Annotation: This 80-nucleotide RNA sequence from Liparis tanakae belongs to the Rfam family "Small nucleolar RNA SNORD72". NCBI's taxonomy places the organism under Eukaryota, Bilateria, Actinopterygii, Acanthomorphata, Liparis. Gene Ontology terms of the family: RNA processing and nucleolus. About the family: snoRNA HBII-240 belongs to the CD family of snoRNAs. It is the human orthologue of the mouse MBII-240 and is predicted to guide 2'O-ribose methylation of the large 28S rRNA at residue U4590. Pairs were carried over by alignment from the consensus structure. The literature on the family includes a 2001 paper in EMBO J by Huttenhofer et al., "RNomics: an experimental approach that identifies 201 candidates for novel, small, non-messenger RNAs in mouse".

RNA sequence: GUCUUGUCAAUGAUGUUUUUAAACACAAAUGUCUGAACAAAUGAUUUCCUGUGAUUUCACUUUUGUUUCUGAGACAAGAC
Numbered sequence: 001g002u003c004u005u006g007u008c009a010a011u012g013a014u015g016u017u018u019u020u021a022a023a024c025a026c027a028a029a030u031g032u033c034u035g036a037a038c039a040a041a042u043g044a045u046u047u048c049c050u051g052u053g054a055u056u057u058c059a060c061u062u063u064u065g066u067u068u069c070u071g072a073g074a075c076a077a078g079a080c
Stems, first nucleotide, its partner, number of pairs: 002079007